[Rfam]
RNA sequence: CGUGCUGACGGAAAUGGUGUCUUCCGUUUAAAAUAACCGCUUCGCGCUGAUGACACCUGCAAAAUG
Numbered sequence: 001c002g003u004g005c006u007g008a009c010g011g012a013a014a015u016g017g018u019g020u021c022u023u024c025c026g027u028u029u030a031a032a033a034u035a036a037c038c039g040c041u042u043c044g045c046g047c048u049g050a051u052g053a054c055a056c057c058u059g060c061a062a063a064a065u066g
Stems, first nucleotide, its partner, number of pairs: 010025004016057006039047002